Shown here is a 136-nucleotide RNA from Callithrix jacchus, a member of the family "Small nucleolar RNA SNORA43". The family's RNA type in Rfam is H/ACA-box small nucleolar RNA. Pairs were carried over by alignment from the consensus structure, which was predicted with RNAfold. The family is grouped with related families in Rfam's "SNORA17 clan".
[Rfam]
Nucleotides: 136
Base pairs, nucleotide, nucleotide: 003061004060005059006058007057008056009055010054024049025048026047027046072128073127074126080119081118082117085114086113090109091108092107093106094105
Number, partner (000 for none) and nucleotide at each position: 001000g002000c003061u004060g005059u006058c007057c008056u009055g010054g011000a012000c013000c014000u015000g016000c017000c018000g019000g020000c021000a022000c023000u024049g025048c026047a027046g028000a029000c030000a031000u032000u033000u034000g035000c036000u037000c038000u039000g040000c041000u042000g043000u044000g045000c046027c047026u048025g049024u050000g051000a052000c053000g054010u055009u056008g057007g058006g059005g060004c061003g062000g063000a064000g065000a066000g067000a068000a069000a070000g071000u072128g073127g074126c075000g076000a077000u078000u079000u080119c081118u082117a083000c084000a085114c086113u087000c088000a089000g090109u091108g092107u093106u094105c095000c096000g097000g098000g099000g100000c101000c102000a103000g104000u105094g106093a107092g108091c109090a110000c111000u112000g113086g114085g115000a116000a117082u118081g119080g120000u121000u122000u123000a124000u125000a126074g127073c128072c129000u130000g131000a132000c133000a134000u135000u136000a